A member of the RNA family "Eukaryotic small subunit ribosomal RNA" from Toxoplasma gondii, 592 nucleotides of a longer RNA. The match comes from Rfam's covariance-model search (1786 bits). The source organism's lineage runs through Eukaryota, Sar, Conoidasida, Eimeriorina and Toxoplasma gondii.

[Rfam]
RNA sequence: AGUCAUAUGCUUGUCUUAAAGAUUAAGCCAUGCAUGUCUAAGUAUAAGCUUUUAUACGGCUAAACUGCGAAUGGCUCAUUAAAACAGUUAUAGUUUAUUUGAUGGUCUUUACUACAUGGAUAACCGUGGUAAUUCUAUGGCUAAUACAUGCGCACAUGCCUCUUCCCCUGGAAGGGCAGUGUUUAUUAGAUACAGAACCAACCCACCUUCCGGUGGUCCUCAGGUGAUUCAUAGUAACCGAACGGAUCGCGUUGACUUCGGUCUGCGACGGAUCAUUCAAGUUUCUGACCUAUCAGCUUUCGACGGUACUGUAUUGGACUACCGUGGCAGUGACGGGUAACGGGGAAUUAGGGUUCGAUUCCGGAGAGGGAGCCUGAGAAACGGCUACCACAUCUAAGGAAGGCAGCAGGCGCGCAAAUUACCCAAUCCUGAUUCAGGGAGGUAGUGACAAGAAAUAACAACACUGGAAAUUUCAUUUCUAGUGAUUGGAAUGAUAGGAAUCCAAACCCCUUUCAGAGUAACAAUUGGAGGGCAAGUCUGGUGCCAGCAGCCGCGGUAAUUCCAGCUCCAAUAGCGUAUAUUAAAGUUGUUG
Numbered sequence: 001a002g003u004c005a006u007a008u009g010c011u012u013g014u015c016u017u018a019a020a021g022a023u024u025a026a027g028c029c030a031u032g033c034a035u036g037u038c039u040a041a042g043u044a045u046a047a048g049c050u051u052u053u054a055u056a057c058g059g060c061u062a063a064a065c066u067g068c069g070a071a072u073g074g075c076u077c078a079u080u081a082a083a084a085c086a087g088u089u090a091u092a093g094u095u096u097a098u099u100u101g102a103u104g105g106u107c108u109u110u111a112c113u114a115c116a117u118g119g120a121u122a123a124c125c126g127u128g129g130u131a132a133u134u135c136u137a138u139g140g141c142u143a144a145u146a147c148a149u150g151c152g153c154a155c156a157u158g159c160c161u162c163u164u165c166c167c168c169u170g171g172a173a174g175g176g177c178a179g180u181g182u183u184u185a186u187u188a189g190a191u192a193c194a195g196a197a198c199c200a201a202c203c204c205a206c207c208u209u210c211c212g213g214u215g216g217u218c219c220u221c222a223g224g225u226g227a228u229u230c231a232u233a234g235u236a237a238c239c240g241a242a243c244g245g246a247u248c249g250c251g252u253u254g255a256c257u258u259c260g261g262u263c264u265g266c267g268a269c270g271g272a273u274c275a276u277u278c279a280a281g282u283u284u285c286u287g288a289c290c291u292a293u294c295a296g297c298u299u300u301c302g303a304c305g306g307u308a309c310u311g312u313a314u315u316g317g318a319c320u321a322c323c324g325u326g327g328c329a330g331u332g333a334c335g336g337g338u339a340a341c342g343g344g345g346a347a348u349u350a351g352g353g354u355u356c357g358a359u360u361c362c363g364g365a366g367a368g369g370g371a372g373c374c375u376g377a378g379a380a381a382c383g384g385c386u387a388c389c390a391c392a393u394c395u396a397a398g399g400a401a402g403g404c405a406g407c408a409g410g411c412g413c414g415c416a417a418a419u420u421a422c423c424c425a426a427u428c429c430u431g432a433u434u435c436a437g438g439g440a441g442g443u444a445g446u447g448a449c450a451a452g453a454a455a456u457a458a459c460a461a462c463a464c465u466g467g468a469a470a471u472u473u474c475a476u477u478u479c480u481a482g483u484g485a486u487u488g489g490a491a492u493g494a495u496a497g498g499a500a501u502c503c504a505a506a507c508c509c510c511u512u513u514c515a516g517a518g519u520a521a522c523a524a525u526u527g528g529a530g531g532g533c534a535a536g537u538c539u540g541g542u543g544c545c546a547g548c549a550g551c552c553g554c555g556g557u558a559a560u561u562c563c564a565g566c567u568c569c570a571a572u573a574g575c576g577u578a579u580a581u582u583a584a585a586g587u588u589g590u591u592g
Base pairs, nucleotide, nucleotide: 001582002581003580005579006578007577008576009575010574011573014453015452016451017450020446021413027411028410029409031408032407033406036068037067041066042065043064048060049059075366076365077364085287086286087285090282091281094280095279100275101274102273103272115150116149117148118147124140125139126138127137128136129135157178158177159176160175161174164171165170183237184236185235186234187233188232197225198224199223205214206213207212247268248267249266250265254263255262256261289337290336291335296328297327298326303325304324305323306322307321308320310318341363342362343361344360345356346355347354348353368389369388371386372385373384391402393400394399419444421443422442423441427439428438429437430436431435459488460487461486462484463483464482465481466480467479468478469477470476471475495515497512499511525571526570527569528568529567530566538565539564540563541562547554548553